[Rfam]
RNA sequence: UUGACUCCAUGGUAUCUGCAUUCAGCAGUUAUUCCUACUGGGUGUUCAAAGGACAGUGUGAUAUAAAUUCAGUAUCUGGCAUCGUUGGUUUUCUUGGCAUUGUGUAUGUUAAAACUGGUAUUUUUAUUGGUACACUA
Numbered sequence: 001u002u003g004a005c006u007c008c009a010u011g012g013u014a015u016c017u018g019c020a021u022u023c024a025g026c027a028g029u030u031a032u033u034c035c036u037a038c039u040g041g042g043u044g045u046u047c048a049a050a051g052g053a054c055a056g057u058g059u060g061a062u063a064u065a066a067a068u069u070c071a072g073u074a075u076c077u078g079g080c081a082u083c084g085u086u087g088g089u090u091u092u093c094u095u096g097g098c099a100u101u102g103u104g105u106a107u108g109u110u111a112a113a114a115c116u117g118g119u120a121u122u123u124u125u126a127u128u129g130g131u132a133c134a135c136u137a
Stems, first nucleotide, its partner, number of pairs: 004057003015052003018045008027036002062126002065123004069118004079105004
RNA: Small nucleolar RNA SNORA8
Organism: Myotis davidii